[Rfam]
RNA sequence: UGGCUUGGUUUCCUGGGAGGUGGGCUCAGCCUAUUCUACCUCCCCUCAGCCAAGCCUAGAGCAGAGGCCUGGUGUCCUCCCUCAUGGGAGAGGCAGUUGAGGAAGUACCCUCUCCUGGGCUGGCCUAGCCACACACGC
Number, nucleotide and partner (000 for none) at each position: 001u000002g056003g055004c054005u053006u052007g051008g000009u000010u000011u000012c000013c000014u000015g044016g043017g042018a041019g040020g039021u038022g037023g036024g035025c000026u000027c000028a000029g000030c000031c000032u000033a000034u000035u024036c023037u022038a021039c020040c019041u018042c017043c016044c015045c000046u000047c000048a000049g000050c000051c007052a006053a005054g004055c003056c002057u000058a000059g000060a000061g000062c000063a000064g000065a000066g130067g129068c128069c000070u000071g125072g124073u000074g000075u000076c119077c118078u117079c000080c000081c000082u000083c000084a000085u000086g111087g110088g109089a000090g000091a000092g000093g000094c000095a000096g000097u000098u000099g000100a000101g000102g000103a000104a000105g000106u000107a000108c000109c088110c087111u086112c000113u000114c000115c000116u000117g078118g077119g076120c000121u000122g000123g000124c072125c071126u000127a000128g068129c067130c066131a000132c000133a000134c000135a000136c000137g000138c000
RNA: Small Cajal body specific RNA 21
Organism: Chinchilla lanigera